[Rfam]
RNA sequence: GUCGCUUGGCUUUCACCUGAGUGACUUUAGUGGAAAUCUCAUCGAUCCGACUAAGGCACGCGGUGAAUGCCAAGUGGU
Numbered sequence: 001g002u003c004g005c006u007u008g009g010c011u012u013u014c015a016c017c018u019g020a021g022u023g024a025c026u027u028u029a030g031u032g033g034a035a036a037u038c039u040c041a042u043c044g045a046u047c048c049g050a051c052u053a054a055g056g057c058a059c060g061c062g063g064u065g066a067a068u069g070c071c072a073a074g075u076g077g078u
Stems, first nucleotide, its partner, number of pairs: 003076004009070002012067005021061003025056007
Notes: This 78-nucleotide sequence from Caenorhabditis bovis belongs to the Rfam family "mir-124 microRNA precursor family". The organism belongs to Caenorhabditis, within Eukaryota. On this family, see Lai et al., Genome Biol 2003: "Computational identification of Drosophila microRNA genes". Gene Ontology terms of the family: miRNA-mediated post-transcriptional gene silencing and RISC complex.